[Rfam]
RNA sequence: AGGAGGAACAACCACAGUGGUGGCGGCCAGCUCUGGAGCCCUGGAUUCAGCUCCCACAGUAACUAUGGAGCUUUUGGUCUGCAGGGACUGUAUGCUCUGGGGCUGG
Numbered sequence: 001a002g003g004a005g006g007a008a009c010a011a012c013c014a015c016a017g018u019g020g021u022g023g024c025g026g027c028c029a030g031c032u033c034u035g036g037a038g039c040c041c042u043g044g045a046u047u048c049a050g051c052u053c054c055c056a057c058a059g060u061a062a063c064u065a066u067g068g069a070g071c072u073u074u075u076g077g078u079c080u081g082c083a084g085g086g087a088c089u090g091u092a093u094g095c096u097c098u099g100g101g102g103c104u105g106g
Base pairs, nucleotide, nucleotide: 002098003097004096005095007093009090010089012086013085019079020078021077023075025074026073029072030071031070032069033068034067035066037064041059042058043057

The family of this 106-nucleotide RNA sequence from Canis lupus is "mir-8834 microRNA precursor family".